[Rfam]
RNA: RT-19 RNA
RNA sequence: ACUACCCUCCGCCGCCCGCGAGAGGGCCAGCCACGGCAACCUAAGCCGAAAAUCAAACCAAGCACGCGACCGGUAGGCCCCAUGGCCGAACGCCGCCA
Number, nucleotide and partner (000 for none) at each position: 001a000002c000003u000004a000005c026006c025007c024008u023009c022010c020011g019012c018013c000014g000015c000016c000017c000018g012019c011020g010021a000022g009023a008024g007025g006026g005027c000028c000029a000030g000031c000032c000033a000034c000035g000036g000037c000038a000039a000040c000041c000042u000043a000044a000045g000046c000047c000048g000049a000050a000051a000052a000053u000054c000055a000056a000057a000058c000059c000060a000061a000062g000063c000064a000065c000066g096067c095068g094069a000070c092071c000072g000073g000074u000075a000076g087077g086078c085079c000080c000081c000082a000083u000084g000085g078086c077087c076088g000089a000090a000091c000092g070093c000094c068095g067096c066097c000098a000